[Rfam]
This 95-nucleotide RNA sequence from Methyloligella halotolerans belongs to the Rfam family "Bacterial small signal recognition particle RNA". Its Rfam clan is "SRP clan". The organism belongs to Methyloligella, within Bacteria. The family's RNA type in Rfam is non-coding RNA gene. The family's consensus secondary structure is taken from published work.
RNA sequence: GAGGUUGGCAGCAGGCGCGUGCCUCGCCAACCGGGUCAGGUCCGGAAGGAAGCAGCCCUAACGAGUUUUACGCGGGUUGCUCGUCCAGCCUCCCA
Numbered sequence: 001g002a003g004g005u006u007g008g009c010a011g012c013a014g015g016c017g018c019g020u021g022c023c024u025c026g027c028c029a030a031c032c033g034g035g036u037c038a039g040g041u042c043c044g045g046a047a048g049g050a051a052g053c054a055g056c057c058c059u060a061a062c063g064a065g066u067u068u069u070a071c072g073c074g075g076g077u078u079g080c081u082c083g084u085c086c087a088g089c090c091u092c093c094c095a
Stems, first nucleotide, its partner, number of pairs: 003090005010081004016074006023065004033058004041050003